[Rfam]
RNA sequence: CUUGUGGAGAACCAUACCAAAUCGUAGUAGCUUAGGCAAGGAGAGGUUCUAUGAAACAAGAA
Numbered sequence: 001c002u003u004g005u006g007g008a009g010a011a012c013c014a015u016a017c018c019a020a021a022u023c024g025u026a027g028u029a030g031c032u033u034a035g036g037c038a039a040g041g042a043g044a045g046g047u048u049c050u051a052u053g054a055a056a057c058a059a060g061a062a
Stems, first nucleotide, its partner, number of pairs: 001060005009049005022044002030037002
RAGATH-18 RNA: a 62-nucleotide sequence from Gottschalkia acidurici. The source organism's lineage runs through Bacteria, Bacillota, Gottschalkiaceae, Gottschalkia and Gottschalkia acidurici. The base pairs follow the family's consensus structure, which is taken from published work. The sequence is in the family's curated seed alignment.